This 138-nucleotide RNA sequence from Corchorus capsularis belongs to the Rfam family "Small nucleolar RNA snoR136". Its family is annotated with nucleolus and RNA processing in the Gene Ontology. NCBI's taxonomy places the organism under Eukaryota, Euphyllophyta, Malvales, Malvaceae, Corchorus. The family's RNA type in Rfam is H/ACA-box small nucleolar RNA. Pairs were carried over by alignment from the consensus structure, which was predicted with mfold.
[Rfam]
RNA sequence: GUGGCUUCAAAUGAUCUUAGAACUGAUAAAUUCAUCGAUACUUAUGAGUUUUUGUGAUUGUGAAGCCUAAAUUUACUGUUCUCCUCGCUAUCCAGCUCCAUAAUUAUAUGGAUUCUUGGACGUCGGGGACCAACAUUC
Numbered sequence: 001g002u003g004g005c006u007u008c009a010a011a012u013g014a015u016c017u018u019a020g021a022a023c024u025g026a027u028a029a030a031u032u033c034a035u036c037g038a039u040a041c042u043u044a045u046g047a048g049u050u051u052u053u054g055u056g057a058u059u060g061u062g063a064a065g066c067c068u069a070a071a072u073u074u075a076c077u078g079u080u081c082u083c084c085u086c087g088c089u090a091u092c093c094a095g096c097u098c099c100a101u102a103a104u105u106a107u108a109u110g111g112a113u114u115c116u117u118g119g120a121c122g123u124c125g126g127g128g129a130c131c132a133a134c135a136u137u138c
Stems, first nucleotide, its partner, number of pairs: 002069001003067003008062002011059001013058001018056002021053002028051008078131001080129005086122002091120005100109003